Notes: The family of this 139-nucleotide sequence is "Group II catalytic intron D1-D4-4". Rfam links the family to the GO term Group II intron splicing. Group II introns are found in rRNA, tRNA and mRNA of organelles in fungi, plants and protists, and also in mRNA in bacteria.
RNA sequence: CAGUGGGUGAAAGUCCCACCCGGCUAAAUCGCUCCGGCCGGAAGCAAUCGGGGCAGCUAUGGAGGUAACAAAAUAGCUGAAGCCUCCGAUGUAAGGAGUCGCUUUAGGCGAUCCAGCGAGUGUGCAGGCCGUAACGUGA
Dot-bracket structure: ...................(((((............))))).......(((((((((((....(....)....))))))....)))))......((..((((.....)))).)).(((...........))).......
Numbered sequence: 001c002a003g004u005g006g007g008u009g010a011a012a013g014u015c016c017c018a019c020c021c022g023g024c025u026a027a028a029u030c031g032c033u034c035c036g037g038c039c040g041g042a043a044g045c046a047a048u049c050g051g052g053g054c055a056g057c058u059a060u061g062g063a064g065g066u067a068a069c070a071a072a073a074u075a076g077c078u079g080a081a082g083c084c085u086c087c088g089a090u091g092u093a094a095g096g097a098g099u100c101g102c103u104u105u106a107g108g109c110g111a112u113c114c115a116g117c118g119a120g121u122g123u124g125c126a127g128g129c130c131g132u133a134a135c136g137u138g139a
Stems, first nucleotide, its partner, number of pairs: 020041005049088005054079006064069001095114002099111004116132003